[Rfam]
RNA: Lysine riboswitch aptamer
RNA sequence: AUUGAAUAUAGAGGUAGCGGUGCAUCAGAGUAUGAAAUCGAGCAGGUAUGCGAAGACGUUUUUGAAAGGUAAUCACCGCCGAAUAGUGUAAAUAGACAUAUUUAUGCUAUGGGGAUAGUAGAGAAAAUCACUAUCACUCAAUCCGGGAUGGAUUGGCGCUAUUAGUAGA
Numbered sequence: 001a002u003u004g005a006a007u008a009u010a011g012a013g014g015u016a017g018c019g020g021u022g023c024a025u026c027a028g029a030g031u032a033u034g035a036a037a038u039c040g041a042g043c044a045g046g047u048a049u050g051c052g053a054a055g056a057c058g059u060u061u062u063u064g065a066a067a068g069g070u071a072a073u074c075a076c077c078g079c080c081g082a083a084u085a086g087u088g089u090a091a092a093u094a095g096a097c098a099u100a101u102u103u104a105u106g107c108u109a110u111g112g113g114g115a116u117a118g119u120a121g122a123g124a125a126a127a128u129c130a131c132u133a134u135c136a137c138u139c140a141a142u143c144c145g146g147g148a149u150g151g152a153u154u155g156g157c158g159c160u161a162u163u164a165g166u167a168g169a
Base pairs, nucleotide, nucleotide: 008162009161010160011159017079018078019077020076021075022074025071034063035062036061037060039058040057083110084109085108086107087106088105089104090103091102092101093100094099111138112137114135115134116133117132118131119130121128140154141153142152143151144150